[Rfam]
RNA sequence: CAAUAGCAUAGGUGACUCAAGGGUGGUUUGCGCAUUACUCUUUCCUUUAACGGAGGGUGGUGUAGCGGAUGACGGUGGCUGAGGCGUUGACGUUGAUGAUCGGAUUUGGAACGUUGAUUGUUGCGAUCUUGUCGGAAAAGAACGAGAAAAAAUAACCACCCUUGAGUUGGCAGCUCGAGAAGGGUGGUAAUGUUUCCUCUUUUUCGCGCAGAUCCCCUAGGGAAUCAUGCUAUUACUGGACAGACCGAUUGGUGUUGGCAGCAUCGAACG
Numbered sequence: 001c002a003a004u005a006g007c008a009u010a011g012g013u014g015a016c017u018c019a020a021g022g023g024u025g026g027u028u029u030g031c032g033c034a035u036u037a038c039u040c041u042u043u044c045c046u047u048u049a050a051c052g053g054a055g056g057g058u059g060g061u062g063u064a065g066c067g068g069a070u071g072a073c074g075g076u077g078g079c080u081g082a083g084g085c086g087u088u089g090a091c092g093u094u095g096a097u098g099a100u101c102g103g104a105u106u107u108g109g110a111a112c113g114u115u116g117a118u119u120g121u122u123g124c125g126a127u128c129u130u131g132u133c134g135g136a137a138a139a140g141a142a143c144g145a146g147a148a149a150a151a152a153u154a155a156c157c158a159c160c161c162u163u164g165a166g167u168u169g170g171c172a173g174c175u176c177g178a179g180a181a182g183g184g185u186g187g188u189a190a191u192g193u194u195u196c197c198u199c200u201u202u203u204u205c206g207c208g209c210a211g212a213u214c215c216c217c218u219a220g221g222g223a224a225u226c227a228u229g230c231u232a233u234u235a236c237u238g239g240a241c242a243g244a245c246c247g248a249u250u251g252g253u254g255u256u257g258g259c260a261g262c263a264u265c266g267a268a269c270g
Base pairs, nucleotide, nucleotide: 002234003233004232006230009212012209013208014207016166017165018164019163020162021161022160023159025157026156027155028154032063033062034061036059037058038057039056040055041054042053043052071133072132073131074130075129077127085098086097109124111122178204179203180202181201182200183199184198213224215222216221246270247269249267250266251265252264253263254262255261256260

Shown here is a 270-nucleotide RNA from Terribacillus sp. AE2B 122, a member of the family "BsrG". Rfam classes the family as a small RNA. On this family, see Jahn et al., Mol Microbiol 2015: "Against the mainstream: the membrane-associated type I toxin BsrG from Bacillus subtilis interferes with cell envelope biosynthesis without increasing membrane permeability". Its family is annotated with autolysis and toxin activity in the Gene Ontology. The organism belongs to Terribacillus, within Bacteria. It scores 64 bits against the family's covariance model. From the family's description: bsrE, bsrG and bsrH pair through intermolecular interactions with antisense sRNAs. They form type I toxin/antitoxin system that includes an mRNA encoding for a short, toxic peptide (bsrE, bsrG and bsrH) and an antitoxin that is comprised of an antisense RNA. bsrG encodes a 39-amino-acid toxin, and the 180 nucleotide antisense sRNA called SR4 acts as the antitoxin (they overlap by 123 nucleotides). SR4 interaction with the 3'UTR of bsrG RNA promotes bsrG degradation and inhibits its translation. BsrG interferes with cell envelope biosynthesis, causes membrane invaginations and delocalisation of the cell wall synthesis and initiates autolysis. bsrE RNA encodes 30 amino-acid toxin peptide. Its antitoxin gene, SR5 overlaps by 112 nucleotides at the 3' end of bsrE. SR5 also overlaps bsrG from nucleotide 163 to 52 (Rfam overlap check). The antitoxin SR5 promotes bsrE degradation but unlike SR4 it does not directly inhibits toxin mRNA translation.